[Rfam]
RNA sequence: UUUGUCCUUCGGGGUCGGGUGAAAGUCCCAACCGGCGGUGAUAAGGUGAUGCAGCCUUUCAGUCCGUGACCCGGUGCAGUGUCUGCAGCGGUGGAUUUGGUGAAAUUCCAAAGCCGACAGUAUAGUCUGGAUGGGAGAAGGACGCU
Numbered sequence: 001u002u003u004g005u006c007c008u009u010c011g012g013g014g015u016c017g018g019g020u021g022a023a024a025g026u027c028c029c030a031a032c033c034g035g036c037g038g039u040g041a042u043a044a045g046g047u048g049a050u051g052c053a054g055c056c057u058u059u060c061a062g063u064c065c066g067u068g069a070c071c072c073g074g075u076g077c078a079g080u081g082u083c084u085g086c087a088g089c090g091g092u093g094g095a096u097u098u099g100g101u102g103a104a105a106u107u108c109c110a111a112a113g114c115c116g117a118c119a120g121u122a123u124a125g126u127c128u129g130g131a132u133g134g135g136a137g138a139a140g141g142a143c144g145c146u
Base pairs, nucleotide, nucleotide: 003144004143005142006141007140008139009138010137017029018028019027031126032125033116034115035067036066037065038064062114063113071091072090096112097111098110099109100108118129119128120127
Rfam assigns this 146-nucleotide RNA sequence from Alkalicoccus urumqiensis to the family "FMN riboswitch aptamer (RFN element)".
Lineage of the source: Bacteria > Bacillati > Bacilli > Caryophanales > Alkalicoccus.
The match comes from Rfam's covariance-model search (115 bits).
The base pairs follow the family's consensus structure, which is taken from published work.